mir-172 microRNA precursor family: a 116-nucleotide RNA sequence from Striga hermonthica. For this family Rfam cites "CARPEL FACTORY, a Dicer homolog, and HEN1, a novel protein, act in microRNA metabolism in Arabidopsis thaliana" (Park et al., Curr Biol, 2002). Its family is annotated with miRNA-mediated post-transcriptional gene silencing and RISC complex in the Gene Ontology. Taxonomically the source falls in Striga (Eukaryota, Magnoliopsida, Mesangiospermae, lamiids).
[Rfam]
RNA sequence: UUUGUUUCCGAUGCAGCAUCAUCAAGAUUCUCAUUAUAAGGGGUUUUUGCGGUACAGACAAAAACACCAAAUAUGUGUAUGCUUGUGAAUCUUGAUGAUGCCGCAUCAGAAACCAA
Dot-bracket structure: .........(((((.(((((((((((((((.((..................................................)).))))))))))))))).))))).........
Numbered sequence: 001u002u003u004g005u006u007u008c009c010g011a012u013g014c015a016g017c018a019u020c021a022u023c024a025a026g027a028u029u030c031u032c033a034u035u036a037u038a039a040g041g042g043g044u045u046u047u048u049g050c051g052g053u054a055c056a057g058a059c060a061a062a063a064a065c066a067c068c069a070a071a072u073a074u075g076u077g078u079a080u081g082c083u084u085g086u087g088a089a090u091c092u093u094g095a096u097g098a099u100g101c102c103g104c105a106u107c108a109g110a111a112a113c114c115a116a
Stems, first nucleotide, its partner, number of pairs: 010107005016101015032085002

The family has 11 seed sequences and 2,076 matches in Rfam 15.1. Rfam describes the family as follows. mir-172 has been experimentally verified in Arabidopsis thaliana. This family is thought to target mRNAs coding for APETALA2-like transcription factors. The mature sequence is excised from the 3' arm of the hairpin.